[Rfam]
RNA sequence: UGCACUCAAUGCUGAGAGAAGUAGCAGUUACUUUUUACUCUUAAGUAACUGCAACAUCUCUCAGUAUUGUAAGGCUC
Numbered sequence: 001u002g003c004a005c006u007c008a009a010u011g012c013u014g015a016g017a018g019a020a021g022u023a024g025c026a027g028u029u030a031c032u033u034u035u036u037a038c039u040c041u042u043a044a045g046u047a048a049c050u051g052c053a054a055c056a057u058c059u060c061u062c063a064g065u066a067u068u069g070u071a072a073g074g075c076u077c
Base pairs, nucleotide, nucleotide: 002075003074006071007069008068009067010066011065012064013063014062015061016060017059018058021055022054024052025051026050027049028048029047030046031045032044033043
Rfam assigns this 77-nucleotide RNA sequence from Rattus norvegicus to the family "mir-883 microRNA precursor family". A reference for the family is Calabrese et al. (2007), "RNA sequence analysis defines Dicer's role in mouse embryonic stem cells", Proc Natl Acad Sci U S A. Pairs were carried over by alignment from the consensus structure, which was predicted with RNAalifold. The sequence is in the family's curated seed alignment. NCBI's taxonomy places the organism under Eukaryota, Euteleostomi, Boreoeutheria, Rodentia, Rattus.